[Rfam]
Rfam assigns this 81-nucleotide RNA sequence from Aquarana catesbeiana to the family "Small nucleolar RNA MBII-202".
RNA sequence: UGAUGACAAUUCUCCGGAAUCUCUGUACAUCUGUGAUGAUUCCCUUGAACCCUUUAUUCUGACGGCUGCCUGACCCUUUUU
Numbered sequence: 001u002g003a004u005g006a007c008a009a010u011u012c013u014c015c016g017g018a019a020u021c022u023c024u025g026u027a028c029a030u031c032u033g034u035g036a037u038g039a040u041u042c043c044c045u046u047g048a049a050c051c052c053u054u055u056a057u058u059c060u061g062a063c064g065g066c067u068g069c070c071u072g073a074c075c076c077u078u079u080u081u
Stems, first nucleotide, its partner, number of pairs: 002081002005078002

It is annotated as a C/D-box small nucleolar RNA.